[Rfam]
RNA sequence: GAAGAGCUUGGCCAGUCCGCCGGAGGCGGAGAAGCAAGUCUUGCGUGGUGGUGGAGCGAUCCAUCCCGCGAAGCGUAGACCGCGAAUGCCCAAGCCGUGUGAUUGAGCCUCGAAAUACCCAAUGCCGGAGCCUUCGUCGUGGACAGAGCGGGGGCCACGUCGGCGUACCGUAUGGCCUGGUAUGCCGAUCCUGCCGGGGUCGUAGAGCA
Numbered sequence: 001g002a003a004g005a006g007c008u009u010g011g012c013c014a015g016u017c018c019g020c021c022g023g024a025g026g027c028g029g030a031g032a033a034g035c036a037a038g039u040c041u042u043g044c045g046u047g048g049u050g051g052u053g054g055a056g057c058g059a060u061c062c063a064u065c066c067c068g069c070g071a072a073g074c075g076u077a078g079a080c081c082g083c084g085a086a087u088g089c090c091c092a093a094g095c096c097g098u099g100u101g102a103u104u105g106a107g108c109c110u111c112g113a114a115a116u117a118c119c120c121a122a123u124g125c126c127g128g129a130g131c132c133u134u135c136g137u138c139g140u141g142g143a144c145a146g147a148g149c150g151g152g153g154g155c156c157a158c159g160u161c162g163g164c165g166u167a168c169c170g171u172a173u174g175g176c177c178u179g180g181u182a183u184g185c186c187g188a189u190c191c192u193g194c195c196g197g198g199g200u201c202g203u204a205g206a207g208c209a
Base pairs, nucleotide, nucleotide: 013031017029018028019027020026022177023176034083035082038080039079040078041077042075043074044070045069046068047067050065051064052063053062054061055060105201107200108199109198110197111196112195124194125193127191128190129189130155131154132153135150136149137148160188161187162186163185164184165183166182167181168180169179
Dot-bracket structure: ............(...((((.[[..)))).)..((..((((((((((..((((((....)))))).))))...)).)))).)).....................(.((((((...........((.((((((..(((..........)))..)))....((((((((((......]].))))))))))))).)))))))))........
The record is a 209-nucleotide sequence, which matches "Group II catalytic intron D1-D4-6" in Rfam. On this family, see Bonen and Vogel, Trends Genet 2001: "The ins and outs of group II introns". About the family: Group II introns are found in rRNA, tRNA and mRNA of organelles in fungi, plants and protists, and also in mRNA in bacteria. The base pairs follow the family's consensus structure.